[Rfam]
RNA sequence: GCACCCAUAGCUCAAUUGGAUAGAGCGUCUGGCUACGGACCAGAAGGUUAGGGGUUCGACUCCUCUUGGGUGCG
Numbered sequence: 001g002c003a004c005c006c007a008u009a010g011c012u013c014a015a016u017u018g019g020a021u022a023g024a025g026c027g028u029c030u031g032g033c034u035a036c037g038g039a040c041c042a043g044a045a046g047g048u049u050a051g052g053g054g055u056u057c058g059a060c061u062c063c064u065c066u067u068g069g070g071u072g073c074g
Base pairs, nucleotide, nucleotide: 001073002072003071004070005069006068007067010026011025012024013023028044029043030042031041032040050066051065052064053063054062
Dot-bracket structure: (((((((..((((.........)))).(((((.......))))).....(((((.......)))))))))))).